[Rfam]
RNA sequence: ACGCUCAGGUCUCUCCGCAUUCGCAAUAACUUUUCGCCUUUUACUAAAGGUUACCGUGCGGAGGGACAACUUAAUGAGCUUCACGCUUAAUUUUUGGGAGGUCUUGCCCGUUUGGGCGAGGC
Numbered sequence: 001a002c003g004c005u006c007a008g009g010u011c012u013c014u015c016c017g018c019a020u021u022c023g024c025a026a027u028a029a030c031u032u033u034u035c036g037c038c039u040u041u042u043a044c045u046a047a048a049g050g051u052u053a054c055c056g057u058g059c060g061g062a063g064g065g066a067c068a069a070c071u072u073a074a075u076g077a078g079c080u081u082c083a084c085g086c087u088u089a090a091u092u093u094u095u096g097g098g099a100g101g102u103c104u105u106g107c108c109c110g111u112u113u114g115g116g117c118g119a120g121g122c
Stems, first nucleotide, its partner, number of pairs: 003079004009067011027053008098122001102121006
Notes: The family of this 122-nucleotide RNA from Haemaphysalis longicornis is "U5 spliceosomal RNA". For this family Rfam cites "Domain analysis of human U5 RNA. Cap trimethylation, protein binding, and spliceosome assembly" (Hinz et al., J Biol Chem, 1996). Pairs were carried over by alignment from the consensus structure, which is taken from published work. The match comes from Rfam's covariance-model search (84 bits). Taxonomically the source falls in Haemaphysalis (Eukaryota, Protostomia, Panarthropoda, Ixodida).